[Rfam]
RNA sequence: CCUUAAUCCUUGCAACGAACCUGAGCCACUGAUUCAGUAAAAUACUCAGUGGCACAUGUUUGUUGUGAGGGUCAAAAGA
Numbered sequence: 001c002c003u004u005a006a007u008c009c010u011u012g013c014a015a016c017g018a019a020c021c022u023g024a025g026c027c028a029c030u031g032a033u034u035c036a037g038u039a040a041a042a043u044a045c046u047c048a049g050u051g052g053c054a055c056a057u058g059u060u061u062g063u064u065g066u067g068a069g070g071g072u073c074a075a076a077a078g079a
Base pairs, nucleotide, nucleotide: 002078003077004076006072007071008070009069010068012066013065014064015063016062019059020058022056023055025053026052027051028050029049030048031047032046
Annotation:
A member of the RNA family "mir-891 microRNA precursor family" from Homo sapiens, 79 nucleotides long. The organism belongs to Homo, within Eukaryota. It is one of the family's seed sequences. The base pairs follow the family's consensus structure, which was predicted with RNAalifold.